[Rfam]
RNA: SAM riboswitch aptamer (S box leader)
RNA sequence: UUCUCAUCAAGAGAGGUCGAGGGACUGGCCCAAUGAAGCCUCGGCAACCUACAGGCUCAUUUGCCUGAAAGGUGCCAAUUCCUGCGCUUGAUAAAACAAGCGAAAGAUGAGAG
Numbered sequence: 001u002u003c004u005c006a007u008c009a010a011g012a013g014a015g016g017u018c019g020a021g022g023g024a025c026u027g028g029c030c031c032a033a034u035g036a037a038g039c040c041u042c043g044g045c046a047a048c049c050u051a052c053a054g055g056c057u058c059a060u061u062u063g064c065c066u067g068a069a070a071g072g073u074g075c076c077a078a079u080u081c082c083u084g085c086g087c088u089u090g091a092u093a094a095a096a097c098a099a100g101c102g103a104a105a106g107a108u109g110a111g112a113g
Base pairs, nucleotide, nucleotide: 001113002112003111004110005109006108007107008106013042014041015040016039017038021031022030023029025084027082028081043076044075045074046073048072049071052067053066054065080105085102086101087100088099089098090097